[Rfam]
RNA sequence: GUCGCAUCAGAUUUCCUGGUGUAACGAAUUUUACUUUCUUCUUGCUCAGCAAGUUUUAUCCCGGCGCCCCCGCCGGGAUAU
Numbered sequence: 001g002u003c004g005c006a007u008c009a010g011a012u013u014u015c016c017u018g019g020u021g022u023a024a025c026g027a028a029u030u031u032u033a034c035u036u037u038c039u040u041c042u043u044g045c046u047c048a049g050c051a052a053g054u055u056u057u058a059u060c061c062c063g064g065c066g067c068c069c070c071c072g073c074c075g076g077g078a079u080a081u
Stems, first nucleotide, its partner, number of pairs: 004022007026056003029052002031049002036044001058079009
About this RNA: This 81-nucleotide RNA from Atlantibacter hermannii belongs to the Rfam family "DsrA RNA". Rfam classes the family as a small RNA. The organism belongs to Atlantibacter hermannii, within Bacteria. Pairs were carried over by alignment from the consensus structure, which is taken from published work. The literature on the family includes a 1995 paper in Proc Natl Acad Sci USA by Sledjeski and Gottesman, "A small RNA acts as an antisilencer of the H-NS-silenced rcsA gene of Escherichia coli". Gene Ontology terms of the family: positive regulation of translation and mRNA transcription. Rfam's curators write: DsrA RNA regulates both transcription, by overcoming transcriptional silencing by the nucleoid-associated H-NS protein, and translation, by promoting efficient translation of the stress sigma factor, RpoS. These two activities of DsrA can be separated by mutation: the first of three stem-loops of the 85 nucleotide RNA is necessary for RpoS translation but not for anti-H-NS action, while the second stem-loop is essential for antisilencing and less critical for RpoS translation. The third stem-loop, which behaves as a transcription terminator, can be substituted by the trp transcription terminator without loss of either DsrA function.